[Rfam]
RNA sequence: GGUCAGCAAAGGCAAAGCCGGUGUGAACCGGUGACGCAAAGCCUCCGGUCUUUGACGCUGCAGACGCCGUCAAAGAUAGCGGGGUUGCCGGU
Numbered sequence: 001g002g003u004c005a006g007c008a009a010a011g012g013c014a015a016a017g018c019c020g021g022u023g024u025g026a027a028c029c030g031g032u033g034a035c036g037c038a039a040a041g042c043c044u045c046c047g048g049u050c051u052u053u054g055a056c057g058c059u060g061c062a063g064a065c066g067c068c069g070u071c072a073a074a075g076a077u078a079g080c081g082g083g084g085u086u087g088c089c090g091g092u
Base pairs, nucleotide, nucleotide: 012037013036017032018031019030020029021028022027040086041085042084043083045082046081047080048077049076050075054071055070056069057068
This 92-nucleotide RNA from Roseateles asaccharophilus belongs to the Rfam family "c-di-GMP-I riboswitch aptamer". It scores 64 bits against the family's covariance model. The family is grouped with related families in Rfam's "c-di-GMP_I riboswitch clan".